Source information: Rfam assigns this 75-nucleotide RNA from Ruminococcus sp. CAG:177 to the family "Glycine riboswitch aptamer". The pairing is the family consensus, mapped onto this sequence.

[Rfam]
RNA sequence: GUCCUCUGGAAAGGCAUUUGCACCGACGAAGCAAUCCGCGAAGCGGAGAAUCUUUCAGGUAAAAAGACAGAGUAC
Dot-bracket structure: ((.(((((......(....).(((((..(((...((.........))....))))).))).......))))).))
Numbered sequence: 001g002u003c004c005u006c007u008g009g010a011a012a013g014g015c016a017u018u019u020g021c022a023c024c025g026a027c028g029a030a031g032c033a034a035u036c037c038g039c040g041a042a043g044c045g046g047a048g049a050a051u052c053u054u055u056c057a058g059g060u061a062a063a064a065a066g067a068c069a070g071a072g073u074a075c
Stems, first nucleotide, its partner, number of pairs: 001075002004072005015020001022060003025056002029054003035047002